[Rfam]
Background: A member of the RNA family "ZMP/ZTP riboswitch aptamer (pfl RNA motif)" from Halanaerobium salsuginis, 87 nucleotides long.
RNA sequence: UUGAGAUUAUAUAACUGGCAGAUAAUAUGGAAUUAACCAUAGGGAAAUAUAAUCUUUGUUUUUAAAUCGCCUGCCUGGAUGUUACUA
Numbered sequence: 001u002u003g004a005g006a007u008u009a010u011a012u013a014a015c016u017g018g019c020a021g022a023u024a025a026u027a028u029g030g031a032a033u034u035a036a037c038c039a040u041a042g043g044g045a046a047a048u049a050u051a052a053u054c055u056u057u058g059u060u061u062u063u064a065a066a067u068c069g070c071c072u073g074c075c076u077g078g079a080u081g082u083u084a085c086u087a
Stems, first nucleotide, its partner, number of pairs: 003056010015044002017075005027040004064082001066080003
Lineage of the source: Bacteria > Bacillati > Bacillota > Halanaerobiales > Halanaerobium. Rfam links the family to the GO terms regulation of purine nucleotide biosynthetic process and one-carbon metabolic process. Pairs were carried over by alignment from the consensus structure, which is taken from published work.